Shown here is an 85-nucleotide RNA from Paracoccus zhejiangensis, a member of the family "Singlet oxygen resistance RNA X".

RNA sequence: UGUCUUCGAAGGCAGGACGCGGCUUUGCUGCUCGCCUUCAACCUCCCUGUUGGACUUAGGCCGGGCUUCGUGCCCGGCUUUUUUU
Numbered sequence: 001u002g003u004c005u006u007c008g009a010a011g012g013c014a015g016g017a018c019g020c021g022g023c024u025u026u027g028c029u030g031c032u033c034g035c036c037u038u039c040a041a042c043c044u045c046c047c048u049g050u051u052g053g054a055c056u057u058a059g060g061c062c063g064g065g066c067u068u069c070g071u072g073c074c075c076g077g078c079u080u081u082u083u084u085u
Stems, first nucleotide, its partner, number of pairs: 008039006059079008

NCBI's taxonomy places the organism under Bacteria, Alphaproteobacteria, Rhodobacterales, Paracoccaceae, Paracoccus. SorX (RSs2461)like SorY is a singlet oxygen induced sRNA that counteracts oxidative stress by targeting mRNA for a transporter in Rhodobacter. It also has an impact on resistance against organic hydroperoxides. It targets SD sequence of potA mRNA via an aSD sequence. Its family is annotated with response to photooxidative stress in the Gene Ontology. A search with the family's covariance model found it, with a score of 52 bits.